Rfam assigns this 75-nucleotide RNA to the family "tRNA". The family's RNA type in Rfam is transfer RNA.
RNA sequence: CACUAAGAAGCUAAAUAGGGCAUUAGCGACAGCCUUUUAAGCUGUAGAUUGGUGACUCCCAACCACCCUUAAUGA
Numbered sequence: 001c002a003c004u005a006a007g008a009a010g011c012u013a014a015a016u017a018g019g020g021c022a023u024u025a026g027c028g029a030c031a032g033c034c035u036u037u038u039a040a041g042c043u044g045u046a047g048a049u050u051g052g053u054g055a056c057u058c059c060c061a062a063c064c065a066c067c068c069u070u071a072a073u074g075a
Base pairs, nucleotide, nucleotide: 001074002073004071005070006069007068010027011026012025013024029045030044031043032042033041051067052066053065054064